[Rfam]
Purine riboswitch aptamer: a 102-nucleotide sequence from Lederbergia lenta.
RNA sequence: GGAAAAGAUAAUUUAAUUAAAUGUAUAUGCUUGUGAAUAUGGCACAAGCGUCUCUACCUGGUAACCGUAAACUACCGGACUACAUGAAAAGUGACUGGAAAU
Numbered sequence: 001g002g003a004a005a006a007g008a009u010a011a012u013u014u015a016a017u018u019a020a021a022u023g024u025a026u027a028u029g030c031u032u033g034u035g036a037a038u039a040u041g042g043c044a045c046a047a048g049c050g051u052c053u054c055u056a057c058c059u060g061g062u063a064a065c066c067g068u069a070a071a072c073u074a075c076c077g078g079a080c081u082a083c084a085u086g087a088a089a090a091g092u093g094a095c096u097g098g099a100a101a102u
Stems, first nucleotide, its partner, number of pairs: 018088001021085005029049007058078006